[Rfam]
RNA sequence: AGGCAGCCCCUUUGCAAAUAAAAUGGCAGGGGAGGUGUUACUCUUCUCGUAAAUCAAUUAACUUAUGUUCUUCAGACUUUGCUGAGAUGUGUUUCGAUAUGAAGCCCUUCUCUGAAGCUGGUCUAGUAAACUUAAGUACAUU
Numbered sequence: 001a002g003g004c005a006g007c008c009c010c011u012u013u014g015c016a017a018a019u020a021a022a023a024u025g026g027c028a029g030g031g032g033a034g035g036u037g038u039u040a041c042u043c044u045u046c047u048c049g050u051a052a053a054u055c056a057a058u059u060a061a062c063u064u065a066u067g068u069u070c071u072u073c074a075g076a077c078u079u080u081g082c083u084g085a086g087a088u089g090u091g092u093u094u095c096g097a098u099a100u101g102a103a104g105c106c107c108u109u110c111u112c113u114g115a116a117g118c119u120g121g122u123c124u125a126g127u128a129a130a131c132u133u134a135a136g137u138a139c140a141u142u
Base pairs, nucleotide, nucleotide: 002039003038004037005036007035008034009032010031011030012029013028014027015026017024062136063135064134067131068130069129074124075123076122077121078120081118082117083116086110087109
The record is a 142-nucleotide sequence from Protea cynaroides, which matches "Small nucleolar RNA snoR77" in Rfam. For this family Rfam cites "Experimental RNomics: identification of 140 candidates for small non-messenger RNAs in the plant Arabidopsis thaliana" (Marker et al., Curr Biol, 2002). By type it is an H/ACA-box small nucleolar RNA.